[Rfam]
RNA: Mammalian CPEB3 ribozyme
RNA sequence: GUUGCAAAUUUGAGGCCAUAGCAGAAGCGCUCAUAUCACACAGCCUGUCAGAUUGUAAUGAAUCUGCAAAUUCUGCU
Number, nucleotide and partner (000 for none) at each position: 001g000002u000003u000004g000005c000006a000007a000008a000009u000010u000011u000012g000013a000014g045015g044016c043017c000018a000019u000020a077021g076022c075023a074024g073025a072026a071027g039028c000029g037030c000031u000032c000033a000034u000035a000036u000037c029038a000039c027040a000041c000042a000043g016044c015045c014046u000047g000048u000049c066050a065051g064052a063053u062054u061055g000056u000057a000058a000059u000060g000061a054062a053063u052064c051065u050066g049067c000068a000069a000070a000071u026072u025073c024074u023075g022076c021077u020